Description
A member of the RNA family "Small nucleolar RNA U54" from Cocos nucifera, 88 nucleotides long. Rfam links the family to the GO terms RNA processing and nucleolus. The family's RNA type in Rfam is C/D-box small nucleolar RNA. The family is grouped with related families in Rfam's "U54 clan". The base pairs follow the family's consensus structure, which was predicted with PFOLD. Taxonomically the source falls in Cocos (Eukaryota, Euphyllophyta, Spermatophyta, Petrosaviidae). From the family's description: U54 is a C/D box small nucleolar RNA, which acts as a methylation guide for 18S ribosomal RNA in plants. The match comes from Rfam's covariance-model search (53 bits).
[Rfam]
RNA sequence: AGCUCCAUGAUUUCAGCCAAUUGCUGUUUUUGGCACUAUACGCUGUUCUGAGAAAGCUAAAGGGCUGACAUUGGAAUAUAUGAGAGCU
Numbered sequence: 001a002g003c004u005c006c007a008u009g010a011u012u013u014c015a016g017c018c019a020a021u022u023g024c025u026g027u028u029u030u031u032g033g034c035a036c037u038a039u040a041c042g043c044u045g046u047u048c049u050g051a052g053a054a055a056g057c058u059a060a061a062g063g064g065c066u067g068a069c070a071u072u073g074g075a076a077u078a079u080a081u082g083a084g085a086g087c088u
Stems, first nucleotide, its partner, number of pairs: 001088005
Background: For this family Rfam cites "The high diversity of snoRNAs in plants: identification and comparative study of 120 snoRNA genes from Oryza sativa" (Chen et al., Nucleic Acids Res, 2003).